[Rfam]
RNA: c-di-AMP riboswitch aptamer (ydaO/yuaA leader)
Organism: Planktothricoides sp. SR001
RNA sequence: AAAAUCUGAACGCCAAGGAGAGGAAACGGGGGAACCAACCUUGGGGCGUAUCUCUAAUAUUUCAAGUAUUUAGAGAAGAAAAACUCUCAUUUCUAGCCCGUCAGCUAACCCCGGCGGCAUUGGGAGAGGACUG
Numbered sequence: 001a002a003a004a005u006c007u008g009a010a011c012g013c014c015a016a017g018g019a020g021a022g023g024a025a026a027c028g029g030g031g032g033a034a035c036c037a038a039c040c041u042u043g044g045g046g047c048g049u050a051u052c053u054c055u056a057a058u059a060u061u062u063c064a065a066g067u068a069u070u071u072a073g074a075g076a077a078g079a080a081a082a083a084c085u086c087u088c089a090u091u092u093c094u095a096g097c098c099c100g101u102c103a104g105c106u107a108a109c110c111c112c113g114g115c116g117g118c119a120u121u122g123g124g125a126g127a128g129g130a131c132u133g
Stems, first nucleotide, its partner, number of pairs: 006117002013023001027113005036043002044099003052075006078093004